Background
The family of this 315-nucleotide RNA sequence from Papaver somniferum is "Plant signal recognition particle RNA". The match comes from Rfam's covariance-model search (154 bits). Taxonomically the source falls in Papaver (Eukaryota, Streptophytina, Embryophyta, Tracheophyta).

RNA sequence: GUCGAGCUCGGUCGCACAAGAUUGGAACCCAAGUGGGGACAUUAAGAUGCUUGAGUACUGGUUGGGAGUACCUCGGUCGGCUCUGGUGCGCACAAUAGGCUGACUCGCCCGCUCCAAAUUGGGAGUUGGUUGGUCCCAUUGCCUGAGCGUAGACUUGGUCUGUGUGAUCCCUAUAGCGGAGGGCACCGCAUCAGACUGGCUUCACAGAGCAACGAACGAACACCUCCCUCUCUCGACAGUGGAAGGAACACGAGUCGAUGUUCCCUAGUUCCAACUCACAGUCUGGUGAGCCGAGUCAGUUGAACAACCACCUUU
Numbered sequence: 001g002u003c004g005a006g007c008u009c010g011g012u013c014g015c016a017c018a019a020g021a022u023u024g025g026a027a028c029c030c031a032a033g034u035g036g037g038g039a040c041a042u043u044a045a046g047a048u049g050c051u052u053g054a055g056u057a058c059u060g061g062u063u064g065g066g067a068g069u070a071c072c073u074c075g076g077u078c079g080g081c082u083c084u085g086g087u088g089c090g091c092a093c094a095a096u097a098g099g100c101u102g103a104c105u106c107g108c109c110c111g112c113u114c115c116a117a118a119u120u121g122g123g124a125g126u127u128g129g130u131u132g133g134u135c136c137c138a139u140u141g142c143c144u145g146a147g148c149g150u151a152g153a154c155u156u157g158g159u160c161u162g163u164g165u166g167a168u169c170c171c172u173a174u175a176g177c178g179g180a181g182g183g184c185a186c187c188g189c190a191u192c193a194g195a196c197u198g199g200c201u202u203c204a205c206a207g208a209g210c211a212a213c214g215a216a217c218g219a220a221c222a223c224c225u226c227c228c229u230c231u232c233u234c235g236a237c238a239g240u241g242g243a244a245g246g247a248a249c250a251c252g253a254g255u256c257g258a259u260g261u262u263c264c265c266u267a268g269u270u271c272c273a274a275c276u277c278a279c280a281g282u283c284u285g286g287u288g289a290g291c292c293g294a295g296u297c298a299g300u301u302g303a304a305c306a307a308c309c310a311c312c313u314u315u
Base pairs, nucleotide, nucleotide: 001040002039003038004023005022007020008019010017028037029036030035044314045313046312048310049309051307052306053305056302057301058299059298060297062294063293064292065291069288070287071286072285075283076282077281079272080271083268084267085266086265088264090263092261095259101257102256103255104254105253106252107251109246110245113243114242115241116240119236120235121234122233123232124231125230128170129169133168134167135166137164138163139162141160143158144157145156146155147154171176178227179226180225181224182223189218191216196207197206198205